RNA sequence: UCUUACAGUUCCUGCAUUGUACACACUGUGCGUGAAAGCUCCAUAAGCACAGCGCAUACAAUGUGGAUGCUGUGCGG
Numbered sequence: 001u002c003u004u005a006c007a008g009u010u011c012c013u014g015c016a017u018u019g020u021a022c023a024c025a026c027u028g029u030g031c032g033u034g035a036a037a038g039c040u041c042c043a044u045a046a047g048c049a050c051a052g053c054g055c056a057u058a059c060a061a062u063g064u065g066g067a068u069g070c071u072g073u074g075c076g077g
Stems, first nucleotide, its partner, number of pairs: 012066002015063007024054001026052006